permuted transfer-messenger RNA: a 211-nucleotide RNA sequence from Sphingomonas olei. The organism belongs to Sphingomonas, within Bacteria. Rfam classes the family as a non-coding RNA gene. The sequence is in the family's curated seed alignment.
[Rfam]
Nucleotides: 211
Stems, first nucleotide, its partner, number of pairs: 001140005014130004027118003031115003037053005054100007141156003
Number, partner (000 for none) and nucleotide at each position: 001140g002139g003138c004137g005136a006000u007000a008000a009000a010000c011000g012000c013000c014130g015129g016128c017127g018000a019000a020000g021000a022000a023000u024000a025000g026000g027118c028117a029116c030000a031115g032114c033113g034000g035000a036000c037053c038052c039051g040050g041049g042000g043000g044000c045000a046000g047000u048000a049041c050040c051039c052038g053037g054100c055099g056098g057097c058096u059095c060094c061000a062000c063000c064000a065000u066000c067000g068000c069000u070000u071000c072000u073000g074000c075000u076000u077000u078000c079000a080000g081000c082000a083000g084000g085000g086000a087000c088000g089000u090000u091000g092000a093000c094060g095059g096058g097057g098056c099055c100054g101000a102000a103000c104000c105000a106000g107000g108000a109000u110000c111000g112000a113033c114032g115031u116029g117028u118027g119000u120000u121000g122000a123000a124000a125000a126000g127017c128016g129015c130014u131000g132000g133000u134000u135000u136005u137004u138003g139002c140001u141156c142155g143154g144000a145000a146000u147000g148000g149000g150000a151000c152000c153000a154143c155142c156141g157000u158000g159000a160000c161000g162000g163000c164000c165000c166000a167000u168000a169000c170000a171000c172000a173000a174000g175000u176000g177000c178000c179000a180000a181000c182000g183000a184000u185000a186000a187000c188000g189000a190000a191000g192000c193000a194000c195000u196000c197000g198000c199000g200000a201000u202000u203000g204000c205000g206000g207000c208000g209000u210000a211000a
Gene Ontology term of the family: RNA catabolic process.